The family of this 77-nucleotide RNA is "pemK RNA".
It is annotated as a cis-regulatory element.
It is one of the family's seed sequences.

Nucleotides: 077
Base pairs, nucleotide, nucleotide: 012074013043014042015041016040017039018038044060045059046058048056049055050054061073062072063071
Number, partner (000 for none) and nucleotide at each position: 001000a002000u003000a004000a005000u006000g007000a008000u009000a010000c011000u012074u013043c014042g015041g016040c017039u018038u019000g020000g021000c022000u023000u024000a025000a026000c027000a028000u029000g030000a031000u032000g033000u034000u035000g036000a037000g038018g039017a040016g041015u042014c043013g044060c045059u046058c047000g048056g049055c050054u051000g052000a053000u054050a055049g056048c057000g058046g059045a060044g061073a062072g063071g064000u065000a066000a067000a068000a069000u070000u071063c072062c073061u074012a075000u076000g077000c